Overview: The record is a 199-nucleotide sequence from Geodermatophilus marinus, which matches "c-di-AMP riboswitch aptamer (ydaO/yuaA leader)" in Rfam. A search with the family's covariance model found it, with a score of 53 bits.

RNA sequence: GGGCGGACACCGCCGAAUCGCCCGACCCGCUCGGCAGAGCGACGAGGGCGAACCGGGGACCCACCGCAGCACUGGGGUGAGUUCUCGCGCGUCCCGGUCCGCCGGGCGCACGCACCGGCUGCCCCGGUGCGCAGAGAUAGGGCGCUUCUUCCCAGCCCGAACCCGUCAGCUAACCCGGUAGGCGGUCGCCGAGGAAGAA
Numbered sequence: 001g002g003g004c005g006g007a008c009a010c011c012g013c014c015g016a017a018u019c020g021c022c023c024g025a026c027c028c029g030c031u032c033g034g035c036a037g038a039g040c041g042a043c044g045a046g047g048g049c050g051a052a053c054c055g056g057g058g059a060c061c062c063a064c065c066g067c068a069g070c071a072c073u074g075g076g077g078u079g080a081g082u083u084c085u086c087g088c089g090c091g092u093c094c095c096g097g098u099c100c101g102c103c104g105g106g107c108g109c110a111c112g113c114a115c116c117g118g119c120u121g122c123c124c125c126g127g128u129g130c131g132c133a134g135a136g137a138u139a140g141g142g143c144g145c146u147u148c149u150u151c152c153c154a155g156c157c158c159g160a161a162c163c164c165g166u167c168a169g170c171u172a173a174c175c176c177g178g179u180a181g182g183c184g185g186u187c188g189c190c191g192a193g194g195a196a197g198a199a
Base pairs, nucleotide, nucleotide: 011184012183013182014181018051019050020049021048022047023046052179053178054177055176056175057174062074063073075164076163077162083137084136085135086134140158141157142156143155